RNA sequence: AAGUUUAGACGGCCCACUCCUCCUCCCAAAGGGACGUCUGUGGGAACAGCGGCACUCCUCCUCCCAGGUCGCCGUUCGGUUCUUUUAGGAAAGCCUGCCGCACCUCCUCCCGCGGCAGGCUUUUCUA
Numbered sequence: 001a002a003g004u005u006u007a008g009a010c011g012g013c014c015c016a017c018u019c020c021u022c023c024u025c026c027c028a029a030a031g032g033g034a035c036g037u038c039u040g041u042g043g044g045a046a047c048a049g050c051g052g053c054a055c056u057c058c059u060c061c062u063c064c065c066a067g068g069u070c071g072c073c074g075u076u077c078g079g080u081u082c083u084u085u086u087a088g089g090a091a092a093g094c095c096u097g098c099c100g101c102a103c104c105u106c107c108u109c110c111c112g113c114g115g116c117a118g119g120c121u122u123u124u125c126u127a
Base pairs, nucleotide, nucleotide: 007039008038009037010036011035013033014032015031044077045076046075047074049072050071051070052069053068091122092121093120094119095118096117097116098115099114100113101112
Dot-bracket structure: ......(((((.(((...............))).)))))....((((.(((((..............))))).)))).............(((((((((((..........))))))))))).....